[Rfam]
RNA sequence: UGGGUCGGCAAGACGGUCGCGUCAGCCUGGUUCUUCGGAACCAGACUGCCGAGGAACGUCCGGGCUCCAUAGGGCAGGACGGUGGGUAACACCCACCCGGGGCAACCCGCGAGAAAGUGCAACAGAAAGCAGACCGCCUCCGGCGCUCCCUUCGGGAAGCAUCGGCGGUAAGGGUGAAACGGUGGUGUAAGAGACCACCAGCAGCCCGAGUGAUCGGGCUGGCUGGGUAAACCUCGUCCGGAGCAAGGUCAGACAGAAAGCGCUAAGGGCUGCCCGCCCAGCUUUCGGGUAGACCGCUAGAGGGCUGCGGCAACGUAGUCACGAGAUAGAUGGCCGUCCAGCGCGGGGCUUUGGCUCGGCGUGAACAGAACCCGGCGUAUCAGCCGGCCCAUUCG
Number, nucleotide and partner (000 for none) at each position: 001u391002g390003g389004g388005u387006c386007g385008g384009c383010a000011a380012g338013a337014c336015g335016g334017u333018c332019g000020c051021g050022u000023c048024a047025g046026c000027c044028u043029g042030g041031u040032u039033c000034u000035u000036c000037g000038g000039a032040a031041c030042c029043a028044g027045a000046c025047u024048g023049c000050c021051g020052a000053g000054g000055a000056a378057c377058g376059u000060c375061c374062g373063g372064g371065c243066u242067c241068c240069a000070u000071a000072g275073g274074g273075c272076a000077g239078g238079a237080c236081g235082g096083u095084g094085g093086g092087u000088a000089a000090c000091a000092c086093c085094c084095a083096c082097c111098c109099g108100g107101g106102g000103c000104a000105a000106c101107c100108c099109g098110c000111g097112a234113g233114a000115a000116a000117g232118u231119g228120c227121a000122a000123c000124a000125g000126a000127a000128a000129g000130c000131a000132g000133a000134c173135c172136g169137c168138c167139u000140c165141c164142g163143g162144c000145g000146c000147u000148c000149c000150c000151u000152u000153c000154g000155g000156g000157a000158a000159g000160c000161a000162u143163c142164g141165g140166c000167g138168g137169u136170a000171a000172g135173g134174g000175u000176g000177a000178a000179a000180c000181g199182g198183u197184g196185g195186u194187g000188u000189a000190a000191g000192a000193g000194a186195c185196c184197a183198c182199c181200a000201g223202c221203a220204g219205c218206c217207c216208g215209a214210g000211u000212g000213a000214u209215c208216g207217g206218g205219c204220u203221g202222g000223c201224u000225g000226g000227g120228u119229a000230a000231a118232c117233c113234u112235c081236g080237u079238c078239c077240g068241g067242a066243g065244c000245a000246a000247g295248g294249u293250c292251a000252g000253a000254c000255a000256g286257a285258a284259a283260g282261c281262g000263c000264u000265a000266a000267g279268g278269g277270c276271u000272g075273c074274c073275c072276g270277c269278c268279c267280a000281g261282c260283u259284u258285u257286c256287g000288g000289g000290u000291a000292g250293a249294c248295c247296g000297c000298u000299a000300g000301a000302g000303g320304g319305c318306u317307g316308c315309g314310g000311c000312a000313a000314c309315g308316u307317a306318g305319u304320c303321a000322c000323g000324a000325g000326a000327u000328a000329g000330a000331u000332g018333g017334c016335c015336g014337u013338c012339c000340a000341g000342c000343g000344c000345g000346g000347g000348g000349c000350u000351u000352u000353g000354g000355c000356u000357c000358g000359g000360c000361g000362u000363g000364a000365a000366c000367a000368g000369a000370a000371c064372c063373c062374g061375g060376c058377g057378u056379a000380u011381c000382a000383g009384c008385c007386g006387g005388c004389c003390c002391a001392u000393u000394c000395g000